[Rfam]
RNA sequence: GCGGAGGGCCGGACGGCCGCUUGUGGAGACAUGAGAGGAAAGUCCGGACUCACCAAAGCACCGGUGCCGGGUAACGCCCGGGCAGGGCAACCUGACGGAAAGCGCCACAGAAAACAGACCGCCCGUUCGUUCGCGUUCGGGACAGGGUGAAAAGGUGGGGUAAGAGCCCACCGGGGGGCUGGCAACAGCGCCCGCAUGGCAAGCCCCACCGGGGAGCAAUGCCGAAUAGGGAUCACGCGCACCUUCGGGUGCAGGGCCGCUUUGGCCUUGGUGAUCCGGGUUGGCAGCUAGAGCCGCGUGGCAACGCGCGGUCCAGAGGAAUGGUCGUCUGAGGGCCGGGAAACCGGCCCAAGAACAGAAUCCGGCUUACAGGCCCUCCGCGCAA
Numbered sequence: 001g002c003g004g005a006g007g008g009c010c011g012g013a014c015g016g017c018c019g020c021u022u023g024u025g026g027a028g029a030c031a032u033g034a035g036a037g038g039a040a041a042g043u044c045c046g047g048a049c050u051c052a053c054c055a056a057a058g059c060a061c062c063g064g065u066g067c068c069g070g071g072u073a074a075c076g077c078c079c080g081g082g083c084a085g086g087g088c089a090a091c092c093u094g095a096c097g098g099a100a101a102g103c104g105c106c107a108c109a110g111a112a113a114a115c116a117g118a119c120c121g122c123c124c125g126u127u128c129g130u131u132c133g134c135g136u137u138c139g140g141g142a143c144a145g146g147g148u149g150a151a152a153a154g155g156u157g158g159g160g161u162a163a164g165a166g167c168c169c170a171c172c173g174g175g176g177g178g179c180u181g182g183c184a185a186c187a188g189c190g191c192c193c194g195c196a197u198g199g200c201a202a203g204c205c206c207c208a209c210c211g212g213g214g215a216g217c218a219a220u221g222c223c224g225a226a227u228a229g230g231g232a233u234c235a236c237g238c239g240c241a242c243c244u245u246c247g248g249g250u251g252c253a254g255g256g257c258c259g260c261u262u263u264g265g266c267c268u269u270g271g272u273g274a275u276c277c278g279g280g281u282u283g284g285c286a287g288c289u290a291g292a293g294c295c296g297c298g299u300g301g302c303a304a305c306g307c308g309c310g311g312u313c314c315a316g317a318g319g320a321a322u323g324g325u326c327g328u329c330u331g332a333g334g335g336c337c338g339g340g341a342a343a344c345c346g347g348c349c350c351a352a353g354a355a356c357a358g359a360a361u362c363c364g365g366c367u368u369a370c371a372g373g374c375c376c377u378c379c380g381c382g383c384a385a
Stems, first nucleotide, its partner, number of pairs: 001381010011370001012329007020035006040368003044365005049216003056263003062211005067081005082096001083094004097206002102204002104200003119146002122141004128135002154172006173195001174193003178189004220286004230277006254268005293312008
The family of this 385-nucleotide sequence from Antarctobacter heliothermus is "Bacterial RNase P class A". Taxonomically the source falls in Antarctobacter (Bacteria, Alphaproteobacteria, Rhodobacterales, Roseobacteraceae). The match comes from Rfam's covariance-model search (285 bits). Rfam describes the family as follows. Ribonuclease P (RNase P) is a ubiquitous endoribonuclease, found in archaea, bacteria and eukarya as well as chloroplasts and mitochondria. The family's consensus secondary structure is taken from published work. It is annotated as a ribozyme.